[Rfam]
RNA sequence: CUGUAAAGCUUUGCACCCAGGGUCUGCGCCCAGACAUUGCACCUGGAGCUUUUUAUUUAAUAAACCUUUUU
Numbered sequence: 001c002u003g004u005a006a007a008g009c010u011u012u013g014c015a016c017c018c019a020g021g022g023u024c025u026g027c028g029c030c031c032a033g034a035c036a037u038u039g040c041a042c043c044u045g046g047a048g049c050u051u052u053u054u055a056u057u058u059a060a061u062a063a064a065c066c067u068u069u070u071u
Base pairs, nucleotide, nucleotide: 005052006051007050008049009048017046018045019044020043022035023034024033025032026031

Rfam assigns this 71-nucleotide sequence from Leptobrachium leishanense to the family "U1A polyadenylation inhibition element (PIE)". It scores 66 bits against the family's covariance model. For this family Rfam cites "Global and Local Dynamics of the U1A Polyadenylation Inhibition Element (PIE) RNA and PIE RNA-U1A Complexes" (Clerte and Hall, Biochemistry, 2004). It is annotated as a cis-regulatory element. Lineage of the source: Eukaryota > Vertebrata > Amphibia > Pelobatoidea > Leptobrachium. Its family is annotated with regulation of mRNA polyadenylation in the Gene Ontology.